[Rfam]
RNA sequence: GCGCGUCUGGAUCAAGAUGGGGCGUUCGUUCGCCUAUUGGGCCGCAGUGCGUAAAACCACCCACAAGGGGAUCUUCUCAGGGUGGUCGGUAUAGCCGGGAGGUACGAACCUGGAAACAGGUCGAGAAGGCAAUGGCAGGGCGGCGUAUUACCCAGACACAGGCGCCGUCGACUGUCCCAAAACCUACCCCCGCCGUGCGCCGAGAAGGGCCGAGGGCGCUUGUAACGCAUAACCUCGAAAGCGCGGAACGCCA
Numbered sequence: 001g002c003g004c005g006u007c008u009g010g011a012u013c014a015a016g017a018u019g020g021g022g023c024g025u026u027c028g029u030u031c032g033c034c035u036a037u038u039g040g041g042c043c044g045c046a047g048u049g050c051g052u053a054a055a056a057c058c059a060c061c062c063a064c065a066a067g068g069g070g071a072u073c074u075u076c077u078c079a080g081g082g083u084g085g086u087c088g089g090u091a092u093a094g095c096c097g098g099g100a101g102g103u104a105c106g107a108a109c110c111u112g113g114a115a116a117c118a119g120g121u122c123g124a125g126a127a128g129g130c131a132a133u134g135g136c137a138g139g140g141c142g143g144c145g146u147a148u149u150a151c152c153c154a155g156a157c158a159c160a161g162g163c164g165c166c167g168u169c170g171a172c173u174g175u176c177c178c179a180a181a182a183c184c185u186a187c188c189c190c191c192g193c194c195g196u197g198c199g200c201c202g203a204g205a206a207g208g209g210c211c212g213a214g215g216g217c218g219c220u221u222g223u224a225a226c227g228c229a230u231a232a233c234c235u236c237g238a239a240a241g242c243g244c245g246g247a248a249c250g251c252c253a
Stems, first nucleotide, its partner, number of pairs: 001045003005042006056086006074206005096192004101188004134176003140168007193246006212236004
Rfam assigns this 253-nucleotide sequence to the family "PAGEV RNA". It is annotated as a small RNA. It is one of the family's seed sequences.